Rfam assigns this 130-nucleotide RNA from Propithecus coquereli to the family "Small nucleolar RNA SNORA3/SNORA45 family". For this family Rfam cites "RNomics: an experimental approach that identifies 201 candidates for novel, small, non-messenger RNAs in mouse" (Huttenhofer et al., EMBO J, 2001). The family is grouped with related families in Rfam's "SNORA3 clan". From the family's description: The members of this family belong to the H/ACA class of snoRNAs which are thought to guide the sites of modification of uridines to pseudouridines. This family includes mouse snoMBI-28 and human homologues ACA3 (SNORA3) and ACA3-2 (SNORA45). Both ACA3 and ACA3-2 share the same host gene. MBI-28, ACA3 and ACA3-2 are all predicted to guide the pseudouridylation of residues in 28S rRNA. The family's consensus secondary structure was predicted with RNAalifold. The source organism's lineage runs through Eukaryota, Metazoa, Gnathostomata, Euteleostomi and Propithecus. A search with the family's covariance model found it, with a score of 116 bits. Gene Ontology terms of the family: nucleolus and RNA processing.

RNA sequence: AUCGAGGUUAGAGUCACGCUUGGGUAUUAAUUAUUGCCUUAGUGUGCUAGAGUCCUCGAAGAAUAACUGCUGACCUUAUUCACUGGCUGCGGUCCUCAUGGCACAGUCAGUCACCAGGUUAGUAACAUCC
Numbered sequence: 001a002u003c004g005a006g007g008u009u010a011g012a013g014u015c016a017c018g019c020u021u022g023g024g025u026a027u028u029a030a031u032u033a034u035u036g037c038c039u040u041a042g043u044g045u046g047c048u049a050g051a052g053u054c055c056u057c058g059a060a061g062a063a064u065a066a067c068u069g070c071u072g073a074c075c076u077u078a079u080u081c082a083c084u085g086g087c088u089g090c091g092g093u094c095c096u097c098a099u100g101g102c103a104c105a106g107u108c109a110g111u112c113a114c115c116a117g118g119u120u121a122g123u124a125a126c127a128u129c130c
Stems, first nucleotide, its partner, number of pairs: 002059005007053003012048002015046006023038004070122007082111005088105002091102001